[Rfam]
RNA sequence: UGAUGAACAUGUUUUCUUUUUUGUUUUGAACAGAAAAGGAAAUGUUUUUAUUAAUUGGAAAUAUUGUUUGUGUUGUAAUUGGGCAGCGGCCAGACAACCGUAGUGAUGGUAUCCACAGGUGGUGGGUUUUUUCACUCUCAUUCGUCUACUGAUUCCAUCUCACAUUU
Numbered sequence: 001u002g003a004u005g006a007a008c009a010u011g012u013u014u015u016c017u018u019u020u021u022u023g024u025u026u027u028g029a030a031c032a033g034a035a036a037a038g039g040a041a042a043u044g045u046u047u048u049u050a051u052u053a054a055u056u057g058g059a060a061a062u063a064u065u066g067u068u069u070g071u072g073u074u075g076u077a078a079u080u081g082g083g084c085a086g087c088g089g090c091c092a093g094a095c096a097a098c099c100g101u102a103g104u105g106a107u108g109g110u111a112u113c114c115a116c117a118g119g120u121g122g123u124g125g126g127u128u129u130u131u132u133c134a135c136u137c138u139c140a141u142u143c144g145u146c147u148a149c150u151g152a153u154u155c156c157a158u159c160u161c162a163c164a165u166u167u
Stems, first nucleotide, its partner, number of pairs: 001054001004050003009045014103161001105159005111154001122143001124141001126139001
The family of this 167-nucleotide RNA from Lupinus albus is "small nucleolar RNA snoR143". For this family Rfam cites "Mining small RNA sequencing data: a new approach to identify small nucleolar RNAs in Arabidopsis" (Chen and Wu, Nucleic Acids Res, 2009). A search with the family's covariance model found it, with a score of 67 bits.